[Rfam]
RNA: GP20-a RNA
RNA sequence: UAAAGACUCGCCCGAAGUCGAUUAAAGACGGGCACAUUCCGUCGCAGAAAGAGACUGCGGAAUUAUAAGACAAACUAAUUAAAGAAUGUUUAGGAGGAGAAA
Numbered sequence: 001u002a003a004a005g006a007c008u009c010g011c012c013c014g015a016a017g018u019c020g021a022u023u024a025a026a027g028a029c030g031g032g033c034a035c036a037u038u039c040c041g042u043c044g045c046a047g048a049a050a051g052a053g054a055c056u057g058c059g060g061a062a063u064u065a066u067a068a069g070a071c072a073a074a075c076u077a078a079u080u081a082a083a084g085a086a087u088g089u090u091u092a093g094g095a096g097g098a099g100a101a102a
Stems, first nucleotide, its partner, number of pairs: 005019004010033005035088005042060005